[Rfam]
RNA sequence: UGCAAAAUGUUCUGUAACGGGGUGGAUCCGACGCCUCUUGAAGGCUACAUAGGCUCUCCUCCCCAACUCCUACUCAAUACGUCCGCGACGUACAGAACGGUAACUUGUCGCCUAAAUAUCCAAGCUUGGGUACACGGGGAAACCCACCCCCUUGGGCGGAUGGGCGGCAAGGCUGAAUUGAGAGGG
Numbered sequence: 001u002g003c004a005a006a007a008u009g010u011u012c013u014g015u016a017a018c019g020g021g022g023u024g025g026a027u028c029c030g031a032c033g034c035c036u037c038u039u040g041a042a043g044g045c046u047a048c049a050u051a052g053g054c055u056c057u058c059c060u061c062c063c064c065a066a067c068u069c070c071u072a073c074u075c076a077a078u079a080c081g082u083c084c085g086c087g088a089c090g091u092a093c094a095g096a097a098c099g100g101u102a103a104c105u106u107g108u109c110g111c112c113u114a115a116a117u118a119u120c121c122a123a124g125c126u127u128g129g130g131u132a133c134a135c136g137g138g139g140a141a142a143c144c145c146a147c148c149c150c151c152u153u154g155g156g157c158g159g160a161u162g163g164g165c166g167g168c169a170a171g172g173c174u175g176a177a178u179u180g181a182g183a184g185g186g
Stems, first nucleotide, its partner, number of pairs: 008097001010095002013092001019064004024059003028053002068186004073182006079091003083100002104171010118161004127146005149156002
Description
This 186-nucleotide sequence from Anopheles sinensis belongs to the Rfam family "drz-agam-2-2 ribozyme". The literature on the family includes a 2009 paper in Science by Webb et al., "Widespread occurrence of self-cleaving ribozymes". A search with the family's covariance model found it, with a score of 180 bits. Gene Ontology term of the family: catalytic activity.